[Rfam]
RNA sequence: UGGCCGUGAUGACCUCUUAGGACACCUUUGGAUUCCACAUGAAAACAAACUAAUGACACAACUGAGCUGC
Numbered sequence: 001u002g003g004c005c006g007u008g009a010u011g012a013c014c015u016c017u018u019a020g021g022a023c024a025c026c027u028u029u030g031g032a033u034u035c036c037a038c039a040u041g042a043a044a045a046c047a048a049a050c051u052a053a054u055g056a057c058a059c060a061a062c063u064g065a066g067c068u069g070c
Stems, first nucleotide, its partner, number of pairs: 001069004

Small nucleolar RNA SNORD58: a 70-nucleotide RNA sequence from Oreochromis niloticus.
A search with the family's covariance model found it, with a score of 57 bits.
The base pairs follow the family's consensus structure, which was predicted with PFOLD.
The organism belongs to Oreochromis, within Eukaryota.
The family is grouped with related families in Rfam's "SNORD58 clan".
snoRNA U58 is found in introns 1, 3 and 6 of the ribosomal protein RPL17 gene in humans.